[Rfam]
RNA sequence: GGCGCAGCUCCAUACUUCUUUACAUUCCAUAUGUCACAUUCACUAUGGGAAGUAAGGAAGCACGGAACGGUCGC
Numbered sequence: 001g002g003c004g005c006a007g008c009u010c011c012a013u014a015c016u017u018c019u020u021u022a023c024a025u026u027c028c029a030u031a032u033g034u035c036a037c038a039u040u041c042a043c044u045a046u047g048g049g050a051a052g053u054a055a056g057g058a059a060g061c062a063c064g065g066a067a068c069g070g071u072c073g074c
Stems, first nucleotide, its partner, number of pairs: 007068001009066003013062001015060009025050001027048005
This 74-nucleotide sequence from Dinoponera quadriceps belongs to the Rfam family "mir-1 microRNA precursor family". The literature on the family includes a 2001 paper in Science by Lee and Ambros, "An extensive class of small RNAs in Caenorhabditis elegans". Rfam's curators write: This family represents the microRNA (miRNA) mir-1 family. miRNAs are transcribed as ~70nt precursors (modelled here) and subsequently processed by the Dicer enzyme to give a ~22nt product. In this case the mature sequence comes from the 3' arm of the precursor. The extents of the hairpin precursors are not generally known and are estimated based on hairpin prediction.